[Rfam]
RNA sequence: UAAGGAAAACGGCAAACCAGAUGAAAGUCUGGGACGCAAAGCCAGAAGAGGCUAAAGUCAGAAAGUUUGACCAGGUCAGCCAGUUGCAACU
Numbered sequence: 001u002a003a004g005g006a007a008a009a010c011g012g013c014a015a016a017c018c019a020g021a022u023g024a025a026a027g028u029c030u031g032g033g034a035c036g037c038a039a040a041g042c043c044a045g046a047a048g049a050g051g052c053u054a055a056a057g058u059c060a061g062a063a064a065g066u067u068u069g070a071c072c073a074g075g076u077c078a079g080c081c082a083g084u085u086g087c088a089a090c091u
Base pairs, nucleotide, nucleotide: 012037013036017032018031019030020029021028022027040085041084042083048081050077051076052075057071058070059069060068061067062066
RNA: c-di-GMP-I riboswitch aptamer